[Rfam]
RNA sequence: GCUACUAUGCCAGCUGGUGGAUUGCUCGGCUCAGGCGCUGAUGAAGGACGUGCCAAGCUGCGAUAAGCUGUGGGGAGCCGCACGGAGGCGAAGAACCACAGAUUUCCGAAUGAGAAUCUCUCUAACAAUUGCUUCGCGCAAUGAGGAACCCCGAGAACUGAAACAUCUCAGUAUCGGGAGGAACAGAAAACGCAACGUGAUGUCGUUAGUAACCGCGAGUGAACGCGAUACAGCCCAAACCGAAGCCCUCACGGGCAAUGUGGUGUCAGGGCUACCUCUCAUCAGCCGACCGUCUUCACGAAGUCUCUUGGAAUAGAGCGUGAUACAGGGUGACAACCCCGUACUGAAGACCAGUACGCUGUGCGGUAGUGCCAGAGUAGCGGGGGUUGGAUAUCCCUCGCGAAUAACGCAGGCAUCGACUGCGAAGGCUAAACACAACCUGAGACCGAUAGUGAACAAGUAGUGUGAACGAACGCUGCAAAGUACCCUCAGAAGGGAGGCGAAAUAGAGCAUGAAAUCAGUUGGCGAUCGAGC
Number, nucleotide and partner (000 for none) at each position: 001g000002c000003u000004a000005c000006u000007a000008u527009g526010c525011c524012a523013g522014c521015u520016g519017g518018u000019g000020g000021a000022u000023u512024g476025c475026u000027c000028g447029g446030c444031u443032c442033a441034g440035g439036c000037g436038c000039u000040g000041a000042u000043g000044a000045a000046g107047g106048a105049c062050g061051u060052g000053c000054c000055a000056a000057g000058c000059u000060g051061c050062g049063a000064u000065a000066a000067g000068c101069u100070g099071u098072g097073g096074g000075g000076a000077g089078c088079c087080g000081c000082a000083c000084g000085g000086a000087g079088g078089c077090g000091a000092a000093g000094a000095a000096c073097c072098a071099c070100a069101g068102a000103u000104u000105u048106c047107c046108g000109a000110a000111u000112g120113a119114g118115a000116a000117u000118c114119u113120c112121u000122c000123u000124a000125a000126c000127a000128a142129u141130u140131g139132c138133u000134u000135c000136g000137c000138g132139c131140a130141a129142u128143g000144a000145g000146g000147a000148a000149c180150c178151c177152c176153g175154a174155g000156a000157a000158c000159u000160g167161a166162a000163a000164c000165a000166u161167c160168u000169c000170a000171g000172u000173a000174u154175c153176g152177g151178g150179a000180g149181g000182a000183a000184c000185a000186g000187a000188a000189a000190a198191c197192g000193c000194a000195a000196c000197g191198u190199g000200a000201u000202g229203u228204c227205g226206u225207u000208a000209g000210u000211a000212a220213c219214c000215g000216c000217g000218a000219g213220u212221g000222a000223a000224c000225g206226c205227g204228a203229u202230a000231c000232a430233g429234c428235c427236c000237a000238a000239a000240c263241c262242g261243a000244a000245g256246c255247c254248c253249u000250c000251a000252c000253g248254g247255g246256c245257a000258a000259u000260g000261u242262g241263g240264u000265g000266u000267c000268a000269g000270g000271g000272c000273u368274a367275c366276c365277u000278c000279u000280c000281a000282u000283c361284a360285g359286c358287c000288g000289a000290c000291c000292g000293u000294c000295u000296u000297c346298a345299c000300g000301a000302a000303g319304u000305c318306u317307c316308u315309u000310g000311g000312a000313a000314u000315a308316g307317a306318g305319c303320g000321u000322g326323a000324u000325a000326c322327a000328g340329g339330g338331u000332g000333a000334c000335a000336a000337c000338c330339c329340c328341g000342u000343a000344c000345u298346g297347a000348a000349g000350a000351c000352c000353a000354g000355u000356a000357c000358g286359c285360u284361g283362u000363g000364c000365g276366g275367u274368a273369g000370u000371g000372c000373c000374a000375g000376a000377g000378u000379a000380g401381c400382g399383g398384g397385g396386g395387u000388u000389g000390g000391a000392u000393a000394u000395c386396c385397c384398u383399c382400g381401c380402g000403a000404a000405u000406a000407a000408c424409g423410c422411a421412g420413g000414c000415a000416u000417c000418g000419a000420c412421u411422g410423c409424g408425a000426a000427g235428g234429c233430u232431a000432a000433a000434c000435a000436c037437a000438a000439c035440c034441u033442g032443a031444g030445a000446c029447c028448g000449a000450u000451a000452g000453u000454g000455a000456a000457c000458a000459a000460g000461u000462a000463g470464u469465g000466u000467g000468a000469a464470c463471g000472a000473a000474c000475g025476c024477u000478g000479c000480a000481a000482a000483g000484u000485a000486c000487c000488c000489u000490c000491a000492g000493a000494a000495g000496g000497g000498a000499g000500g000501c000502g000503a000504a000505a000506u000507a000508g000509a000510g000511c000512a023513u000514g000515a000516a000517a000518u017519c016520a015521g014522u013523u012524g011525g010526c009527g008528a000529u000530c000531g000532a000533g000534c000